Rfam assigns this 335-nucleotide part of an RNA from Bryonosema plumatellae to the family "Microsporidia small subunit ribosomal RNA". The family has 46 seed sequences and 1,035 matches in Rfam 15.1. A reference for the family is Yusupov et al. (2001), "Crystal structure of the ribosome at 5.5 A resolution", Science. The family's consensus secondary structure is taken from published work. The family is grouped with related families in Rfam's "SSU clan". Gene Ontology terms of the family: structural constituent of ribosome and ribosome.

[Rfam]
RNA sequence: CUGUUAAAACGUCCGUAGUAGAUUAUUCUGUUACUAUGACAAAAAUGUAUAUCUCAAAUGAAAUAUAUAGCAUAGUACAAAGUAAAGACAGGAACAGAUGAUGGCAGCAGUAUUUAAUAGUUAGAGGUGAAAAUCGAAGACCUAUUAAGGACUCUCAGAAGCGAAAGCGGCUGUCAAGUAUCUGUAUCCAAGGACUCACGAUUAUCGAAAUUGAAUGGAUACCAUAGUACCAUUUGUAAACAAUUAGAGUGAGGACUACAUUACUCCUUACAAGAAACCAACGUUUAAUUGACCAGGGGGGAUAGUACGAAAGCAAUUUUGAAACUUAAAGAGAU
Numbered sequence: 001c002u003g004u005u006a007a008a009a010c011g012u013c014c015g016u017a018g019u020a021g022a023u024u025a026u027u028c029u030g031u032u033a034c035u036a037u038g039a040c041a042a043a044a045a046u047g048u049a050u051a052u053c054u055c056a057a058a059u060g061a062a063a064u065a066u067a068u069a070g071c072a073u074a075g076u077a078c079a080a081a082g083u084a085a086a087g088a089c090a091g092g093a094a095c096a097g098a099u100g101a102u103g104g105c106a107g108c109a110g111u112a113u114u115u116a117a118u119a120g121u122u123a124g125a126g127g128u129g130a131a132a133a134u135c136g137a138a139g140a141c142c143u144a145u146u147a148a149g150g151a152c153u154c155u156c157a158g159a160a161g162c163g164a165a166a167g168c169g170g171c172u173g174u175c176a177a178g179u180a181u182c183u184g185u186a187u188c189c190a191a192g193g194a195c196u197c198a199c200g201a202u203u204a205u206c207g208a209a210a211u212u213g214a215a216u217g218g219a220u221a222c223c224a225u226a227g228u229a230c231c232a233u234u235u236g237u238a239a240a241c242a243a244u245u246a247g248a249g250u251g252a253g254g255a256c257u258a259c260a261u262u263a264c265u266c267c268u269u270a271c272a273a274g275a276a277a278c279c280a281a282c283g284u285u286u287a288a289u290u291g292a293c294c295a296g297g298g299g300g301g302a303u304a305g306u307a308c309g310a311a312a313g314c315a316a317u318u319u320u321g322a323a324a325c326u327u328a329a330a331g332a333g334a335u
Stems, first nucleotide, its partner, number of pairs: 001298002011195004018188001020187001091183003094179002102176007109153002113149008124135002161168002200230001206227001212224002245287003249271007257263002300327002309320004